[Rfam]
RNA: Ribosomal protein L10 leader
RNA sequence: UUAACAAAAUCUAAUUUGCCAAAGACAGCAAGUGCGUAAGCUUAAUUUCUUGCCGAGGACUAAAAAUGACUAUUUUUAACCCUCUUUUGUCUUGGCUUAAGAGGGUUUUAAUUUUAAAUC
Numbered sequence: 001u002u003a004a005c006a007a008a009a010u011c012u013a014a015u016u017u018g019c020c021a022a023a024g025a026c027a028g029c030a031a032g033u034g035c036g037u038a039a040g041c042u043u044a045a046u047u048u049c050u051u052g053c054c055g056a057g058g059a060c061u062a063a064a065a066a067u068g069a070c071u072a073u074u075u076u077u078a079a080c081c082c083u084c085u086u087u088u089g090u091c092u093u094g095g096c097u098u099a100a101g102a103g104g105g106u107u108u109u110a111a112u113u114u115u116a117a118a119u120c
Stems, first nucleotide, its partner, number of pairs: 028053005034041002080105007089096001